[Rfam]
Shown here is a 93-nucleotide sequence from Trema andersonii, a member of the family "Small nucleolar RNA Z161/Z228". Rfam links the family to the GO terms nucleolus and RNA processing. For this family Rfam cites "The high diversity of snoRNAs in plants: identification and comparative study of 120 snoRNA genes from Oryza sativa" (Chen et al., Nucleic Acids Res, 2003). The family's RNA type in Rfam is C/D-box small nucleolar RNA.
RNA sequence: AAAUCAAAUGAUGAGUAUGGAUUUCAAUUUUCUCACGACGGUCGUCUGAGAUACAUUACUAUGAUGUUAAAACAUCCUAUGCUCCUGAUGAUU
Numbered sequence: 001a002a003a004u005c006a007a008a009u010g011a012u013g014a015g016u017a018u019g020g021a022u023u024u025c026a027a028u029u030u031u032c033u034c035a036c037g038a039c040g041g042u043c044g045u046c047u048g049a050g051a052u053a054c055a056u057u058a059c060u061a062u063g064a065u066g067u068u069a070a071a072a073c074a075u076c077c078u079a080u081g082c083u084c085c086u087g088a089u090g091a092u093u
Stems, first nucleotide, its partner, number of pairs: 001093002004090001052061002